[Rfam]
The family of this 80-nucleotide sequence from Kribbella amoyensis is "SAH (S-adenosyl-L-homocysteine) riboswitch aptamer". For this family Rfam cites "Riboswitches that sense S-adenosylhomocysteine and activate genes involved in coenzyme recycling" (Wang et al., Mol Cell, 2008). The source organism's lineage runs through Bacteria, Bacillati, Propionibacteriales, Kribbellaceae and Kribbella. Pairs were carried over by alignment from the consensus structure, which is taken from published work. Gene Ontology terms of the family: regulation of gene expression and S-adenosylhomocysteine metabolic process.
Nucleotides: 080
Stems, first nucleotide, its partner, number of pairs: 002050007021037006
Number, partner (000 for none) and nucleotide at each position: 001000c002050a003049g004048g005047u006046c007045g008044a009000g010000a011000g012000g013000c014000g015000c016000u017000g018000c019000a020000a021037c022036g023035g024034g025033u026032c027000c028000g029000g030000a031000g032026g033025g034024u035023c036022c037021g038000c039000c040000a041000c042000g043000c044008u045007c046006g047005g048004c049003c050002u051000g052000c053000a054000u055000c056000c057000u058000g059000a060000u061000c062000g063000c064000a065000a066000g067000g068000g069000c070000g071000c072000c073000u074000c075000c076000g077000g078000a079000g080000a